[Rfam]
RNA sequence: GUCUCCGUAGCGCAGCGGAUAGCGCGCUGGACUUCUAAUCCAGAGGUCGCGGGUUCGAAUCCCGCCGGAGAUG
Numbered sequence: 001g002u003c004u005c006c007g008u009a010g011c012g013c014a015g016c017g018g019a020u021a022g023c024g025c026g027c028u029g030g031a032c033u034u035c036u037a038a039u040c041c042a043g044a045g046g047u048c049g050c051g052g053g054u055u056c057g058a059a060u061c062c063c064g065c066c067g068g069a070g071a072u073g
Stems, first nucleotide, its partner, number of pairs: 001072007010025004027043005049065005
A member of the RNA family "tRNA" from Lottia gigantea, 73 nucleotides long. Rfam classes the family as a transfer RNA. A search with the family's covariance model found it, with a score of 73 bits. The base pairs follow the family's consensus structure, which is taken from published work. The source organism's lineage runs through Eukaryota, Metazoa, Eumetazoa, Lophotrochozoa and Lottia.